[Rfam]
RNA: Small nucleolar RNA snoR111
Organism: Juglans regia
RNA sequence: AACAGAAAAGGGGAGACAGCUCUGUCUCUCCUGCGUUCGGAAGAACAUUGAGGUAUAGCAAAAAAUCAAUGGUCGAGAUAUCGUUUCAGUCGUCAUCUUUUUUUAUUGGCGAUUCGAUUGUUGCUCGUCCACAU
Numbered sequence: 001a002a003c004a005g006a007a008a009a010g011g012g013g014a015g016a017c018a019g020c021u022c023u024g025u026c027u028c029u030c031c032u033g034c035g036u037u038c039g040g041a042a043g044a045a046c047a048u049u050g051a052g053g054u055a056u057a058g059c060a061a062a063a064a065a066u067c068a069a070u071g072g073u074c075g076a077g078a079u080a081u082c083g084u085u086u087c088a089g090u091c092g093u094c095a096u097c098u099u100u101u102u103u104u105a106u107u108g109g110c111g112a113u114u115c116g117a118u119u120g121u122u123g124c125u126c127g128u129c130c131a132c133a134u
Stems, first nucleotide, its partner, number of pairs: 003040001005038003011030006071130002074127004080118004089113007